[Rfam]
The family of this 181-nucleotide sequence from Anolis carolinensis is "Small nucleolar RNA SNORA23". About the family: The members of this family belong to the H/ACA class of snoRNAs which are thought to guide the sites of modification of uridines to pseudouridines. For this family Rfam cites "RNomics: an experimental approach that identifies 201 candidates for novel, small, non-messenger RNAs in mouse" (Huttenhofer et al., EMBO J, 2001). The organism belongs to Anolis, within Eukaryota. By type it is an H/ACA-box small nucleolar RNA.
RNA sequence: GCAGUCAUGUGUGCAUAGUUUCUCAUCUGUGUCUAGUGGUAUGGUCCAUUUGCGUUUUGCAUUUAGACUAUAUUGCUCACACACUACCUGUGGCCAAAGAGCAACUUGAGUUCAUAGUACUGAUGUAGUGAUGUCGAAAGACAUACUUACCACUGAUCAGCCUCCAAACUCUCAAACAAAA
Numbered sequence: 001g002c003a004g005u006c007a008u009g010u011g012u013g014c015a016u017a018g019u020u021u022c023u024c025a026u027c028u029g030u031g032u033c034u035a036g037u038g039g040u041a042u043g044g045u046c047c048a049u050u051u052g053c054g055u056u057u058u059g060c061a062u063u064u065a066g067a068c069u070a071u072a073u074u075g076c077u078c079a080c081a082c083a084c085u086a087c088c089u090g091u092g093g094c095c096a097a098a099g100a101g102c103a104a105c106u107u108g109a110g111u112u113c114a115u116a117g118u119a120c121u122g123a124u125g126u127a128g129u130g131a132u133g134u135c136g137a138a139a140g141a142c143a144u145a146c147u148u149a150c151c152a153c154u155g156a157u158c159a160g161c162c163u164c165c166a167a168a169c170u171c172u173c174a175a176a177c178a179a180a181a
Base pairs, nucleotide, nucleotide: 013091014090015089030083031082032081034079036077037075038074039073040072041071042070044068045067046066048064051061052060053059107174108173109172110171120160121159122158123157124156127154128153129152130151132145133142134141135140